[Rfam]
Shown here is a 135-nucleotide sequence from Tricholaema leucomelas, a member of the family "Small nucleolar RNA SNORA9".
The family has 36 seed sequences and 1,202 matches in Rfam 15.1.
Gene Ontology terms of the family: RNA processing and nucleolus.
RNA sequence: CUGCAAGCCUGCCAGCGUGAGGGGGUCUGGAGUGGCCCCCCUCCAUUCCUGCAAUGCUUGCUAGAGCAACCCCGGGAUGGUUUGAGGCCUCUCCCCGCUCAAACCGGGAAGGGGUUAUAGAAAUCUCGGACACUG
Number, nucleotide and partner (000 for none) at each position: 001c000002u000003g061004c060005a059006a058007g057008c056009c000010u000011g000012c000013c000014a000015g000016c000017g000018u045019g044020a000021g000022g000023g038024g037025g036026u035027c034028u000029g000030g000031a000032g000033u000034g027035g026036c025037c024038c023039c000040c000041c000042u000043c000044c019045a018046u000047u000048c000049c000050u000051g000052c000053a000054a000055u000056g008057c007058u006059u005060g004061c003062u000063a000064g000065a000066g000067c000068a000069a000070c000071c000072c000073c128074g127075g126076g125077a124078u000079g000080g000081u000082u000083u000084g000085a000086g000087g000088c114089c113090u112091c111092u110093c000094c000095c107096c106097g105098c000099u000100c000101a000102a000103a000104c000105c097106g096107g095108g000109a000110a092111g091112g090113g089114g088115u000116u000117a000118u000119a000120g000121a000122a000123a000124u077125c076126u075127c074128g073129g000130a000131c000132a000133c000134u000135g000
It scores 113 bits against the family's covariance model. Its Rfam clan is "SNORA9 clan". ACA9 is a member of the H/ACA class of snoRNA that guide the sites of modification of uridines to pseudouridines.